[Rfam]
RNA: L31-Actinobacteria ribosomal protein leader
Organism: Aeromicrobium erythreum
RNA sequence: CCGGUCCUGGUUCACGGUCCGCACCCGCGGCCCGACCCAGCACC
Numbered sequence: 001c002c003g004g005u006c007c008u009g010g011u012u013c014a015c016g017g018u019c020c021g022c023a024c025c026c027g028c029g030g031c032c033c034g035a036c037c038c039a040g041c042a043c044c
Base pairs, nucleotide, nucleotide: 003044004043005042007040008039009038010037015034016033017032019030020029021028022027